[Rfam]
Rfam assigns this 57-nucleotide sequence from Gossypium anomalum to the family "Plastid-rps18 3UTR RNA". Pairs were carried over by alignment from the consensus structure, which was predicted with LocARNA. It scores 65 bits against the family's covariance model. Rfam's curators write: Plastid rps18 is a non-coding RNA (ncRNA) present in plastids. It was identified as a short stem-loop motif in the 3 prime untranslate region (3UTR) of rps18 gene.
RNA sequence: UACAAGUAUUUUACGAUUCAGAAGCAACUGUUUGUUGUAUAGAUUGUGUAUUAAUCU
Numbered sequence: 001u002a003c004a005a006g007u008a009u010u011u012u013a014c015g016a017u018u019c020a021g022a023a024g025c026a027a028c029u030g031u032u033u034g035u036u037g038u039a040u041a042g043a044u045u046g047u048g049u050a051u052u053a054a055u056c057u
Base pairs, nucleotide, nucleotide: 018037020035022033023032024031025030